[Rfam]
RNA sequence: GGAGGUGUGUGUCAGUGAUGGCACGCUGAACAUCGAUCGCUCGGUAGUCAUGCUAGUAGCAGAUCUGCUCAGAUAGUGCGUCACGAAGGUCGAUCCAGCAACCAUGGAUGCGCUGCCGAUGCCCCUUGGGCCGCACGGUAUGCAGACGUGGAUGCUCGAACGCCAUUUCCAAAAUUAACUUUAAGGGGUUACGGACGUGGGUCAUUUCUAUUUAGGACACCUCCAGAUAUCGGCACUGCAGCUUCAAAAGCAGUAUGCCAUUUUUUGG
Numbered sequence: 001g002g003a004g005g006u007g008u009g010u011g012u013c014a015g016u017g018a019u020g021g022c023a024c025g026c027u028g029a030a031c032a033u034c035g036a037u038c039g040c041u042c043g044g045u046a047g048u049c050a051u052g053c054u055a056g057u058a059g060c061a062g063a064u065c066u067g068c069u070c071a072g073a074u075a076g077u078g079c080g081u082c083a084c085g086a087a088g089g090u091c092g093a094u095c096c097a098g099c100a101a102c103c104a105u106g107g108a109u110g111c112g113c114u115g116c117c118g119a120u121g122c123c124c125c126u127u128g129g130g131c132c133g134c135a136c137g138g139u140a141u142g143c144a145g146a147c148g149u150g151g152a153u154g155c156u157c158g159a160a161c162g163c164c165a166u167u168u169c170c171a172a173a174a175u176u177a178a179c180u181u182u183a184a185g186g187g188g189u190u191a192c193g194g195a196c197g198u199g200g201g202u203c204a205u206u207u208c209u210a211u212u213u214a215g216g217a218c219a220c221c222u223c224c225a226g227a228u229a230u231c232g233g234c235a236c237u238g239c240a241g242c243u244u245c246a247a248a249a250g251c252a253g254u255a256u257g258c259c260a261u262u263u264u265u266u267g268g
Base pairs, nucleotide, nucleotide: 001224002223003222004221005220006219007218008217015084016083017082018081019080026072027071028070031067032066035065036064037063038062039060040059041058042056232259233258234257235254236253237252238251239250
This 268-nucleotide RNA sequence from Callosobruchus maculatus belongs to the Rfam family "Arthropod 7SK RNA".
NCBI's taxonomy places the organism under Eukaryota, Opisthokonta, Eumetazoa, Pterygota, Callosobruchus.
Pairs were carried over by alignment from the consensus structure, which is taken from published work.
The family's RNA type in Rfam is non-coding RNA gene.
It scores 110 bits against the family's covariance model.
On this family, see Gruber et al., Mol Biol Evol 2008: "Arthropod 7SK RNA".
Rfam 15.1 lists 229 matches to the family in 137 species.